[Rfam]
RNA sequence: UUUCGGAGCCGCGCGUUCGCUCCGUUGUUCUUUUUGAGAAUCUCCGGGGAGGAAAGUCCGGACGCCGUAGGGCAGGAUUCCUCGCGAAAGCGGGGGAGGGCCGCUUCAAGGCGGUUCGACGGCCAGUGCCACAGAGAAUAUACCGCCUCGGCUUCGGUUGGGGUAAGGGUGAAAAGGUGGGGUAAGAGCCCACCGCGGUUCGAGCAAUCGGACCGGCAGGGUAAACCCAUUCCGGCGCAAGGUUAAAUAGGGGACCUGGGCUGCUCGUCCAUCAAGGGUUCCGGGUAAACCGCGCUACUUCGCAAGAAGGGGCUCCCGCUUCGGCGGGAUGCAGAUAAAUGAACGCGACCUUGGUUUCGGCCAAGGUACAGGAUCCGGCUUACAGGCUCCGAAACUAG
Numbered sequence: 001u002u003u004c005g006g007a008g009c010c011g012c013g014c015g016u017u018c019g020c021u022c023c024g025u026u027g028u029u030c031u032u033u034u035u036g037a038g039a040a041u042c043u044c045c046g047g048g049g050a051g052g053a054a055a056g057u058c059c060g061g062a063c064g065c066c067g068u069a070g071g072g073c074a075g076g077a078u079u080c081c082u083c084g085c086g087a088a089a090g091c092g093g094g095g096g097a098g099g100g101c102c103g104c105u106u107c108a109a110g111g112c113g114g115u116u117c118g119a120c121g122g123c124c125a126g127u128g129c130c131a132c133a134g135a136g137a138a139u140a141u142a143c144c145g146c147c148u149c150g151g152c153u154u155c156g157g158u159u160g161g162g163g164u165a166a167g168g169g170u171g172a173a174a175a176g177g178u179g180g181g182g183u184a185a186g187a188g189c190c191c192a193c194c195g196c197g198g199u200u201c202g203a204g205c206a207a208u209c210g211g212a213c214c215g216g217c218a219g220g221g222u223a224a225a226c227c228c229a230u231u232c233c234g235g236c237g238c239a240a241g242g243u244u245a246a247a248u249a250g251g252g253g254a255c256c257u258g259g260g261c262u263g264c265u266c267g268u269c270c271a272u273c274a275a276g277g278g279u280u281c282c283g284g285g286u287a288a289a290c291c292g293c294g295c296u297a298c299u300u301c302g303c304a305a306g307a308a309g310g311g312g313c314u315c316c317c318g319c320u321u322c323g324g325c326g327g328g329a330u331g332c333a334g335a336u337a338a339a340u341g342a343a344c345g346c347g348a349c350c351u352u353g354g355u356u357u358c359g360g361c362c363a364a365g366g367u368a369c370a371g372g373a374u375c376c377g378g379c380u381u382a383c384a385g386g387c388u389c390c391g392a393a394a395c396u397a398g
Stems, first nucleotide, its partner, number of pairs: 001394010011383001012347007020049005027042001054381003058378005063237004070270004075233003079229001080095005096120001098117008121228002126226002128222003143168002145164008176194006195217001196215008241291004251282006262274002265271001